[Rfam]
Shown here is a 251-nucleotide RNA from Trichoglossum hirsutum, a member of the family "Small nucleolar RNA snR191". Gene Ontology terms of the family: RNA processing and nucleolus. Lineage of the source: Eukaryota > Fungi > Ascomycota > saccharomyceta > Trichoglossum. The family's consensus secondary structure was predicted with WAR. It is annotated as an H/ACA-box small nucleolar RNA.
RNA sequence: UACCAUUGUUUUUGUCAAGACUCCUUCCUGCAUCUUGUUGCGCCUGUCGAUGGAAGUUUUGUCUGUUACGACAUUGGUAGAUUGACAUCCAUACCCGCCGCUCUUUACCCUUUUGGUUAUCGAGUAGACCGCUCUUCGUCUUGGAGAGUUCGUCACAAAGGGGCAGGGAGUGUCUCAUUUUGAGUUGAGCACCAUCGCCACCAUUGAAUUGGUGGCUGGUGACGGUGCUCUUAGUAAUGAUUCACACAUUC
Number, nucleotide and partner (000 for none) at each position: 001u000002a000003c077004c076005a075006u000007u073008g000009u000010u000011u000012u000013u000014g000015u000016c000017a000018a064019g063020a062021c061022u000023c000024c056025u055026u054027c053028c052029u000030g041031c040032a039033u000034c000035u000036u000037g000038u000039u032040g031041c030042g000043c000044c000045u000046g000047u000048c000049g000050a000051u000052g028053g027054a026055a025056g024057u000058u000059u000060u000061g021062u020063c019064u018065g000066u000067u000068a000069c000070g000071a000072c000073a007074u000075u005076g004077g003078u000079a000080g000081a000082u000083u000084g000085a000086c000087a000088u168089c167090c166091a000092u000093a000094c000095c163096c162097g000098c000099c122100g121101c000102u000103c000104u000105u000106u119107a117108c116109c115110c000111u000112u000113u000114u000115g109116g108117u107118u000119a106120u000121c100122g099123a000124g000125u000126a000127g154128a153129c152130c000131g000132c148133u147134c146135u145136u144137c143138g142139u000140c000141u000142u138143g137144g136145a135146g134147a133148g132149u000150u000151c000152g129153u128154c127155a000156c000157a000158a000159a000160g000161g000162g096163g095164c000165a000166g090167g089168g088169a000170g245171u244172g243173u000174c000175u240176c239177a238178u237179u000180u000181u000182g000183a000184g000185u000186u000187g230188a229189g228190c227191a000192c000193c224194a000195u222196c000197g216198c215199c214200a213201c212202c211203a210204u000205u000206g000207a000208a000209u000210u203211g202212g201213u200214g199215g198216c197217u000218g000219g000220u000221g000222a195223c000224g193225g000226u000227g190228c189229u188230c187231u000232u000233a000234g000235u000236a000237a178238u177239g176240a175241u000242u000243c172244a171245c170246a000247c000248a000249u000250u000251c000